Shown here is a 145-nucleotide RNA from Nocardioides sp. Root1257, a member of the family "c-di-AMP riboswitch aptamer (ydaO/yuaA leader)". Its family is annotated with regulation of gene expression and cyclic-di-AMP binding in the Gene Ontology. A search with the family's covariance model found it, with a score of 62 bits. Rfam describes the family as follows. This family represents a conserved RNA structure found upstream of the ydaO and yuaA genes in Bacillus subtilis and related genes in other bacteria.
RNA sequence: GUGACUCGAACACCGAGGACGGGGACGGGGGACCCAGGUCUCCGGGUCGUACGACGACCCUCGGGGUGAAGCCGCACCCGUGCGGCCGGGCCACAUCUCCGCCCGAACCCGACAGCUAACUCCGCAGGCGUCGAGGAGAACCCAU
Numbered sequence: 001g002u003g004a005c006u007c008g009a010a011c012a013c014c015g016a017g018g019a020c021g022g023g024g025a026c027g028g029g030g031g032a033c034c035c036a037g038g039u040c041u042c043c044g045g046g047u048c049g050u051a052c053g054a055c056g057a058c059c060c061u062c063g064g065g066g067u068g069a070a071g072c073c074g075c076a077c078c079c080g081u082g083c084g085g086c087c088g089g090g091c092c093a094c095a096u097c098u099c100c101g102c103c104c105g106a107a108c109c110c111g112a113c114a115g116c117u118a119a120c121u122c123c124g125c126a127g128g129c130g131u132c133g134a135g136g137a138g139a140a141c142c143c144a145u
Stems, first nucleotide, its partner, number of pairs: 005024003026124005035063001064110003072085004088104004